[Rfam]
RNA sequence: GGAAGAGUGUCGCUCCCGGGUGGGACGUCCGGACUUCAAAUCCGGGAAUGGCUGUCGUACAGUCCUUGGUGGGUUCGACUCCCAUACUCUUCC
Numbered sequence: 001g002g003a004a005g006a007g008u009g010u011c012g013c014u015c016c017c018g019g020g021u022g023g024g025a026c027g028u029c030c031g032g033a034c035u036u037c038a039a040a041u042c043c044g045g046g047a048a049u050g051g052c053u054g055u056c057g058u059a060c061a062g063u064c065c066u067u068g069g070u071g072g073g074u075u076c077g078a079c080u081c082c083c084a085u086a087c088u089c090u091u092c093c
Stems, first nucleotide, its partner, number of pairs: 001093009011027002014025004028046006048067001050065002070084004
Rfam assigns this 93-nucleotide RNA from Zwartia hollandica to the family "Selenocysteine transfer RNA". NCBI's taxonomy places the organism under Bacteria, Pseudomonadati, Burkholderiales, Alcaligenaceae, Zwartia. Its Rfam clan is "tRNA clan". A search with the family's covariance model found it, with a score of 70 bits.